[Rfam]
RNA: che1 RNA
RNA sequence: CGGGCAGGGGGGUCUUCGUCGAACGACGGAGCCUGUCCGAACAAAGCAGGUUGCGCGGGAGCGUGGCCAGUGGUUGUCGCUCGGGGGUGAUCGCCG
Numbered sequence: 001c002g003g004g005c006a007g008g009g010g011g012g013u014c015u016u017c018g019u020c021g022a023a024c025g026a027c028g029g030a031g032c033c034u035g036u037c038c039g040a041a042c043a044a045a046g047c048a049g050g051u052u053g054c055g056c057g058g059g060a061g062c063g064u065g066g067c068c069a070g071u072g073g074u075u076g077u078c079g080c081u082c083g084g085g086g087g088u089g090a091u092c093g094c095c096g
Base pairs, nucleotide, nucleotide: 001039002038003037004036005035006034007033008032014031015030016029017028018027019026020025049068050067051066052065053064054063055062056061